Nucleotides: 125
Stems, first nucleotide, its partner, number of pairs: 006037006013028003064120001066118004072109004081104006
Number, partner (000 for none) and nucleotide at each position: 001000u002000a003000a004000c005000g006037g007036c008035g009034g010033c011032g012000a013028c014027a015026c016000a017000a018000a019000u020000u021000c022000u023000u024000g025000c026015g027014u028013g029000c030000u031000g032011c033010g034009c035008c036007g037006c038000u039000c040000a041000c042000g043000c044000a045000a046000g047000g048000a049000g050000g051000g052000a053000u054000a055000a056000a057000u058000c059000g060000a061000c062000u063000c064120g065000u066118c067117a068116a069115g070000a071000a072109a073108u074107c075106g076000u077000u078000u079000c080000a081104g082103u083102u084101g085100c086099c087000a088000u089000g090000a091000c092000u093000c094000c095000a096000g097000u098000a099086g100085g101084c102083a103082a104081u105000a106075u107074g108073a109072u110000u111000g112000u113000u114000g115069c116068u117067u118066g119000a120064c121000u122000a123000c124000a125000g
Description: The record is a 125-nucleotide sequence from Zea mays, which matches "Small nucleolar RNA snoR111" in Rfam. Taxonomically the source falls in Zea (Eukaryota, commelinids, Poales, Poaceae). By type it is an H/ACA-box small nucleolar RNA. On this family, see Marker et al., Curr Biol 2002: "Experimental RNomics: identification of 140 candidates for small non-messenger RNAs in the plant Arabidopsis thaliana". The family's consensus secondary structure was predicted with WAR. Rfam 15.1 lists 533 matches to the family in 223 species.